The family of this 160-nucleotide RNA from Populus alba is "MIR2912 microRNA precursor family". The base pairs follow the family's consensus structure, which was predicted with RNAalifold.
RNA sequence: UAUAGAACUCCAGUUAUGGGUAAAAUUCUGAGUAGUGUUUGGGUUGGAUUGCAUGAUAGAUUUUGACUUCUCUUUUAUGGCCAAGCUUUGAAUUUGAAAACGACAGAUUUGGGUCUUCCACUCUCAUGAAAGUUGAAGGCCUAUUUCUUAGCUUUCUAGC
Numbered sequence: 001u002a003u004a005g006a007a008c009u010c011c012a013g014u015u016a017u018g019g020g021u022a023a024a025a026u027u028c029u030g031a032g033u034a035g036u037g038u039u040u041g042g043g044u045u046g047g048a049u050u051g052c053a054u055g056a057u058a059g060a061u062u063u064u065g066a067c068u069u070c071u072c073u074u075u076u077a078u079g080g081c082c083a084a085g086c087u088u089u090g091a092a093u094u095u096g097a098a099a100a101c102g103a104c105a106g107a108u109u110u111g112g113g114u115c116u117u118c119c120a121c122u123c124u125c126a127u128g129a130a131a132g133u134u135g136a137a138g139g140c141c142u143a144u145u146u147c148u149u150a151g152c153u154u155u156c157u158a159g160c
Stems, first nucleotide, its partner, number of pairs: 003158005008151002012148002016144005021138001025134001028132002035127003042123002050120002053117001055115003059110002062107004068102001073097002077093002